[Rfam]
RNA sequence: UUGGGGAGUAGCCUGCUUCCGGUAUCGGAAGCGCCCGCGUCAACACACUCGGCCAUUGCGCCGUGGCGCGGGCAGCCAGACCCGGUUGGCGAGACCAGCGGCAUGCGCGCGCAACGACAGGUUGGGCGUGUGCGCAUGUCGUAUGCGUCGUCCGCCCGGC
Dot-bracket structure: ..............(((............)))((((((((((.......((((......)))))))))))))).....(................................................................................)
A member of the RNA family "Manganese Mn2+ riboswitch aptamer (yybP-ykoY)" from Stenotrophomonas daejeonensis, 160 nucleotides long. From the family's description: This RNA was originally discovered in E. coli during a large scale screen and was named SraF. The family was later found to exist upstream of related families of protein genes in many bacteria, including the the yybP and ykoK genes in B. subtilis. The pairing is the family consensus, mapped onto this sequence. The family has 29 seed sequences and 1,126 matches in Rfam 15.1. Taxonomically the source falls in Stenotrophomonas (Bacteria, Pseudomonadati, Pseudomonadota, Gammaproteobacteria). A search with the family's covariance model found it, with a score of 50 bits. Rfam links the family to the GO term manganese ion binding.